[Rfam]
Small nucleolar RNA Z122: an 87-nucleotide sequence from Hevea brasiliensis.
The family's consensus secondary structure was predicted with PFOLD.

RNA sequence: UUUGGGAAAUGAUGUGAAGUUAACACAAAUUAUCAUAGGCAUUAGCUAUGCUGAAUGUGUUUAUUUGCACGUCAGUCUGAUCCCAAU
Numbered sequence: 001u002u003u004g005g006g007a008a009a010u011g012a013u014g015u016g017a018a019g020u021u022a023a024c025a026c027a028a029a030u031u032a033u034c035a036u037a038g039g040c041a042u043u044a045g046c047u048a049u050g051c052u053g054a055a056u057g058u059g060u061u062u063a064u065u066u067g068c069a070c071g072u073c074a075g076u077c078u079g080a081u082c083c084c085a086a087u
Base pairs, nucleotide, nucleotide: 002086003085004084005083006082007081

A reference for the family is Qu et al. (1999), "Seven novel methylation guide small nucleolar RNAs are processed from a common polycistronic transcript by Rat1p and RNase III in yeast", Mol Cell Biol.